[Rfam]
RNA sequence: UGAGUGUUAUGAUGUUGGAAGUGCUACUACUUUCCGAGUCUAGCUCGUCGCUACCCUCUGGUGAGUUGUCAUCAGAGG
Numbered sequence: 001u002g003a004g005u006g007u008u009a010u011g012a013u014g015u016u017g018g019a020a021g022u023g024c025u026a027c028u029a030c031u032u033u034c035c036g037a038g039u040c041u042a043g044c045u046c047g048u049c050g051c052u053a054c055c056c057u058c059u060g061g062u063g064a065g066u067u068g069u070c071a072u073c074a075g076a077g078g
Base pairs, nucleotide, nucleotide: 002046003045004044005043011040012039013038017035018034019033020032021031055078056077057076058075059074060073061072062071063070
L17 ribosomal protein downstream element: a 78-nucleotide RNA from Enterococcus cecorum. By type it is a cis-regulatory element.